Source information: The record is a 128-nucleotide RNA from Limnohabitans sp. JirII-31, which matches "ZMP/ZTP riboswitch aptamer (pfl RNA motif)" in Rfam. The base pairs follow the family's consensus structure, which is taken from published work. A search with the family's covariance model found it, with a score of 52 bits. Taxonomically the source falls in Limnohabitans (Bacteria, Pseudomonadati, Betaproteobacteria, Burkholderiales).
RNA sequence: UGACCCGCGCGCAACUGGCGAUAGGCGUGCUGGGCCCCUGCCCCGCACCGCUGACGUGGAGUUUUGACCACUGGGAAGCGCGCAGCCUCAACCCUUGAGGUGUUUUGCCGUUCGCCUGGGCAGCCCUG
Numbered sequence: 001u002g003a004c005c006c007g008c009g010c011g012c013a014a015c016u017g018g019c020g021a022u023a024g025g026c027g028u029g030c031u032g033g034g035c036c037c038c039u040g041c042c043c044c045g046c047a048c049c050g051c052u053g054a055c056g057u058g059g060a061g062u063u064u065u066g067a068c069c070a071c072u073g074g075g076a077a078g079c080g081c082g083c084a085g086c087c088u089c090a091a092c093c094c095u096u097g098a099g100g101u102g103u104u105u106u107g108c109c110g111u112u113c114g115c116c117u118g119g120g121c122a123g124c125c126c127u128g
Stems, first nucleotide, its partner, number of pairs: 005085001007083006015075002017116005056071004105123005